[Rfam]
RNA sequence: GGUUUACAUUGGUGCAAAUCCAAUAACCUAGGUUUGAGAUGAAAAACAAUUCUCCAUUGAGGGUAAAUGGUUAUCCAUUAAGCGGAGGAAAU
Numbered sequence: 001g002g003u004u005u006a007c008a009u010u011g012g013u014g015c016a017a018a019u020c021c022a023a024u025a026a027c028c029u030a031g032g033u034u035u036g037a038g039a040u041g042a043a044a045a046a047c048a049a050u051u052c053u054c055c056a057u058u059g060a061g062g063g064u065a066a067a068u069g070g071u072u073a074u075c076c077a078u079u080a081a082g083c084g085g086a087g088g089a090a091a092u
Stems, first nucleotide, its partner, number of pairs: 009023004052087004056078002059075002062072003
Dot-bracket structure: ........((((.......))))............................((((((.((.(((.....))).)).)).....)))).....